The family of this 580-nucleotide part of an RNA from a Theionarchaea archaeon is "Archaeal large subunit ribosomal RNA". Taxonomically the source falls in Theionarchaea (Archaea, Methanobacteriati, Methanobacteriota). Gene Ontology terms of the family: ribosome and structural constituent of ribosome. The literature on the family includes a 2001 paper in Science by Yusupov et al., "Crystal structure of the ribosome at 5.5 A resolution".

RNA sequence: CUCCCAACGGGAAGCGAAGACCCCGUGGAGUUUUACUACAGCCUGUCGUUGUGAUUCGAAUGUGGUUGUGCAGAAUAGGUGGGAGCCAUCGAAACCUCGUCGCCAGAUGAGGUGGAGGCGCCCGUGAGAUACCACCCUUCUAUGUUUGAGUCACUAACCGUUUUCGGAUGGGACAUCGGUAGGUAGGUAGUUUGGCUGGGGCGGCACGCCCCUGAAAAGAUAUCAGGGGCGCCCUAAGGCUGGCUCAGAUGGGUCAGAAAUCCAUCGUAGAGUGCAAGGGCAAAAGCCAGCCUGACUGGAUUGUUGCCAGUAAGCGAUCCAGAGGCGAAAGCCGGGCCUAGCGAGACACAAUGUCCUCUUUAGUGGGGGCUUGUGGUGACAGAAAAACUACCCCGGGGAUAACAGGGUGGUAUCGGGUAAGAGUACAUAUCGACCCCGAUGCUUGCUACCUCGCUGUCGGUUUUCUCCAACCUGGGUCUGCAGCAGGACCCAAGGGUGGGGUUGUUCGCCCAUCAAAGGAGAACAUGAGCUGGGUUUAGAUCGUCGUGAGACAGAUUGGAUGCUAUCUGUUGGGAGUGUU
Number, nucleotide and partner (000 for none) at each position: 001c576002u575003c574004c573005c572006a571007a570008c569009g000010g568011g567012a566013a000014g563015c562016g000017a000018a000019g000020a000021c000022c397023c396024c395025g394026u000027g393028g392029a389030g388031u387032u386033u385034u000035a191036c190037u189038a188039c000040a000041g000042c183043c182044u181045g180046u179047c178048g177049u000050u000051g154052u153053g152054a151055u150056u149057c148058g147059a146060a145061u144062g143063u142064g141065g140066u000067u000068g137069u000070g000071c000072a000073g000074a000075a000076u000077a000078g136079g135080u134081g133082g132083g000084a000085g119086c118087c117088a000089u000090c000091g000092a000093a000094a000095c000096c000097u110098c109099g108100u107101c106102g000103c000104c000105a000106g101107a100108u099109g098110a097111g000112g000113u000114g000115g000116a000117g087118g086119c085120g000121c000122c000123c000124g000125u000126g000127a000128g000129a000130u000131a000132c082133c081134a080135c079136c078137c068138u000139u000140c065141u064142a063143u062144g061145u060146u059147u058148g057149a056150g055151u054152c053153a052154c051155u000156a000157a000158c171159c170160g169161u168162u000163u000164u000165c000166g000167g000168a161169u160170g159171g158172g000173a000174c000175a000176u000177c048178g047179g046180u045181a044182g043183g042184u000185a000186g000187g000188u038189a037190g036191u035192u000193u000194g207195g205196c204197u203198g000199g000200g000201g000202c000203g197204g196205c195206a000207c194208g230209c229210c228211c227212c226213u225214g000215a000216a000217a000218a000219g000220a000221u000222a000223u000224c000225a213226g212227g211228g210229g209230c208231g000232c000233c336234c335235u000236a000237a000238g000239g291240c290241u289242g288243g287244c286245u271246c270247a000248g266249a265250u264251g263252g262253g261254u000255c000256a000257g000258a000259a000260a000261u253262c252263c251264a250265u249266c248267g000268u000269a000270g246271a245272g281273u280274g000275c000276a000277a000278g000279g000280g273281c272282a000283a000284a000285a000286g244287c243288c242289a241290g240291c239292c000293u000294g000295a000296c322297u321298g320299g319300a318301u317302u316303g315304u314305u000306g000307c000308c000309a000310g000311u000312a000313a000314g304315c303316g302317a301318u300319c299320c298321a297322g296323a000324g333325g000326c331327g000328a000329a000330a000331g326332c000333c324334g000335g234336g233337c000338c000339u000340a000341g000342c000343g000344a000345g000346a000347c375348a374349c373350a372351a371352u000353g370354u000355c369356c368357u367358c366359u000360u000361u000362a000363g000364u000365g000366g358367g357368g356369g355370c353371u351372u350373g349374u348375g347376g000377u000378g000379a000380c000381a000382g000383a000384a000385a033386a032387a031388c030389u029390a000391c000392c028393c027394c025395g024396g023397g022398g000399a000400u000401a000402a000403c000404a000405g000406g447407g446408u445409g000410g444411u441412a440413u439414c438415g437416g436417g435418u000419a000420a000421g431422a430423g000424u000425a000426c000427a000428u000429a000430u422431c421432g000433a000434c000435c417436c416437c415438g414439a413440u412441g411442c000443u000444u410445g408446c407447u406448a000449c000450c000451u000452c000453g000454c000455u000456g000457u000458c533459g531460g530461u529462u528463u525464u522465c521466u520467c519468c518469a000470a000471c496472c495473u000474g000475g490476g489477u488478c487479u486480g000481c000482a000483g000484c000485a000486g479487g478488a477489c476490c475491c000492a000493a000494g000495g472496g471497u000498g000499g511500g510501g509502u508503u000504g000505u000506u000507c000508g502509c501510c500511c499512a000513u000514c000515a000516a000517a000518g468519g467520a466521g465522a464523a000524c000525a463526u000527g000528a462529g461530c460531u459532g000533g458534g000535u000536u000537u000538a000539g557540a556541u555542c554543g552544u551545c550546g000547u000548g000549a000550g545551a544552c543553a000554g542555a541556u540557u539558g000559g000560a000561u000562g015563c014564u000565a000566u012567c011568u010569g008570u007571u006572g005573g004574g003575a002576g001577u000578g000579u000580u000